The record is an 84-nucleotide RNA sequence, which matches "L31-Actinobacteria ribosomal protein leader" in Rfam. For this family Rfam cites "Discovery of 20 novel ribosomal leader candidates in bacteria and archaea" (Eckert and Weinberg, BMC Microbiol, 2020). Pairs were carried over by alignment from the consensus structure, which is taken from published work. The family's RNA type in Rfam is cis-regulatory leader.
RNA sequence: CUGGUUCCGGUUCACGUUCCCGAUCAGCAGGGUGUGACCACACGACUGCUGCAGUGCGCCGCACACGGGAACGACCCGGCGACC
Numbered sequence: 001c002u003g004g005u006u007c008c009g010g011u012u013c014a015c016g017u018u019c020c021c022g023a024u025c026a027g028c029a030g031g032g033u034g035u036g037a038c039c040a041c042a043c044g045a046c047u048g049c050u051g052c053a054g055u056g057c058g059c060c061g062c063a064c065a066c067g068g069g070a071a072c073g074a075c076c077c078g079g080c081g082a083c084c
Stems, first nucleotide, its partner, number of pairs: 003084003007079004015073008